[Rfam]
Rfam assigns this 83-nucleotide sequence from Taxus chinensis to the family "Small nucleolar RNA R16". The family's RNA type in Rfam is C/D-box small nucleolar RNA.
RNA sequence: GAUGGCAUAUGAUGAUUGAAAUCUUAUUCUACACACUGAAAUAUUGGUGUAGACAAUUUAACCUCUGACAAACUGAUGCCGAA
Numbered sequence: 001g002a003u004g005g006c007a008u009a010u011g012a013u014g015a016u017u018g019a020a021a022u023c024u025u026a027u028u029c030u031a032c033a034c035a036c037u038g039a040a041a042u043a044u045u046g047g048u049g050u051a052g053a054c055a056a057u058u059u060a061a062c063c064u065c066u067g068a069c070a071a072a073c074u075g076a077u078g079c080c081g082a083a
Stems, first nucleotide, its partner, number of pairs: 003081005
The match comes from Rfam's covariance-model search (52 bits). Gene Ontology terms of the family: RNA processing and nucleolus. The literature on the family includes a 2002 paper in Mol Cell Biol by Galardi et al., "Purified box C/D snoRNPs are able to reproduce site-specific 2'-O-methylation of target RNA in vitro". The source organism's lineage runs through Eukaryota, Streptophyta, Embryophyta, Taxaceae and Taxus.